[Rfam]
RNA sequence: CACUGCCUAUAUUUAUUGAGCUGUAUAUAUUCGGUGAUUUGGUCCGAACGUCUCUACCACAAAACCUAAUUUUGUGACUACAGUCCAUCAUUUCUGAUUC
Number, nucleotide and partner (000 for none) at each position: 001c000002a000003c000004u000005g000006c000007c000008u000009a000010u000011a000012u000013u000014u000015a000016u000017u000018g086019a000020g084021c083022u082023g081024u080025a079026u000027a000028u000029a000030u048031u047032c046033g045034g044035u000036g000037a000038u000039u000040u000041g000042g000043u000044c034045c033046g032047a031048a030049c000050g000051u000052c000053u000054c000055u000056a000057c000058c076059a075060c074061a073062a072063a071064a070065c000066c000067u000068a000069a000070u064071u063072u062073u061074g060075u059076g058077a000078c000079u025080a024081c023082a022083g021084u020085c000086c018087a000088u000089c000090a000091u000092u000093u000094c000095u000096g000097a000098u000099u000100c000
RNA: Purine riboswitch aptamer